This 62-nucleotide RNA sequence from Myotis myotis belongs to the Rfam family "Coronavirus 3' UTR pseudoknot". The family's consensus secondary structure is taken from published work. NCBI's taxonomy places the organism under Eukaryota, Vertebrata, Euteleostomi, Chiroptera, Myotis. A reference for the family is Williams et al. (1999), "A phylogenetically conserved hairpin-type 3' untranslated region pseudoknot functions in coronavirus RNA replication", J Virol. Rfam classes the family as a cis-regulatory element.

RNA sequence: CUGCUCUUUGUCAUAAUGAUAAUCUGGUAUUAUUCAGGUAAAAGAAGAGGAAGAGUAUUUUU
Numbered sequence: 001c002u003g004c005u006c007u008u009u010g011u012c013a014u015a016a017u018g019a020u021a022a023u024c025u026g027g028u029a030u031u032a033u034u035c036a037g038g039u040a041a042a043a044g045a046a047g048a049g050g051a052a053g054a055g056u057a058u059u060u061u062u
Base pairs, nucleotide, nucleotide: 007043008042009041012038028057029056030055031054033052034051035050